[Rfam]
Nucleotides: 392
Stems, first nucleotide, its partner, number of pairs: 001388010011377001012339007020044002023041006049375003053372005058229004066275001071225005076090005091105001092103004106220002111218002113214003128160002130156005137149004168186006187209001188207003192203004233296004243287006266281005303322008
Number, partner (000 for none) and nucleotide at each position: 001388u002387c003386a004385g005384a006383u007382g008381g009380c010379u011377g012339g013338a014337u015336g016335g017334c018333u019000g020044c021043u022000g023041c024040u025039u026038u027037u028036u029000u030000u031000u032000c033000g034000u035000a036028a037027a038026a039025g040024a041023g042000g043021a044020g045000a046000g047000g048000a049375a050374a051373g052000u053372c054371c055370g056369g057368g058229c059228u060227c061226c062000a063000c064000a065000g066275g067000a068000u069000c070000a071225g072224g073223a074222u075221g076090c077089c078088g079087g080086g081000u082000a083000a084000c085000g086080c087079c088078c089077g090076g091105c092103g093102g094101g095100g096000g097000u098000a099000a100095c101094c102093c103092c104000a105091g106220g107219g108000a109000a110000a111218g112217u113214g114213c115212c116000g117000c118000a119000g120000a121000a122000a123000a124000c125000a126000a127000a128160c129159c130156g131155c132154c133153c134152u135000c136000c137149a138148a139147g140146g141000u142000g143000a144000u145000a146140c147139c148138u149137u150000a151000u152134g153133g154132g155131g156130u157000a158000a159129g160128g161000g162000u163000g164000a165000a166000a167000a168186g169185g170184u171183g172182c173181g174000g175000u176000a177000a178000g179000a180000g181173c182172g183171c184170a185169c186168c187209g188207c189206c190205g191000g192203u193202c194201u195200g196000g197000u198000a199000a200195c201194a202193g203192a204000a205190c206189g207188g208000g209187c210000a211000u212115g213114g214113u215000a216000a217112a218111c219107c220106c221075c222074a223073u224072c225071c226061g227060g228059a229058g230000c231000a232000a233296g234295a235294c236293c237000a238000u239000a240000u241000a242000g243287g244286g245285a246284c247283a248282a249000a250000c251000g252000c253000c254000a255000u256000g257000c258000a259000a260000a261000u262000g263000g264000c265000a266281g267280a268279u269278g270277c271000g272000a273000u274000c275066c276000u277270g278269c279268a280267u281266c282248u283247u284246g285245u286244c287243c288000g289000g290000g291000u292000a293236g294235g295234u296233u297000g298000c299000u300000a301000a302000a303322g304321a305320u306319g307318u308317c309316u310315g311000g312000u313000a314000a315310c316309a317308g318307g319306c320305a321304u322303c323000g324000u325000a326000g327000a328000u329000g330000a331000a332000u333018a334017g335016u336015c337014g338013u339012c340000a341000c342000c343000g344000c345000c346000a347000g348000c349000g350000c351000a352000a353000g354000c355000a356000a357000a358000c359000g360000g361000u362000a363000c364000a365000g366000a367000a368057c369056c370055c371054g372053g373051c374050u375049u376000a377011u378000a379010g380009g381008c382007c383006a384005u385004c386003u387002g388001a389000c390000a391000g392000a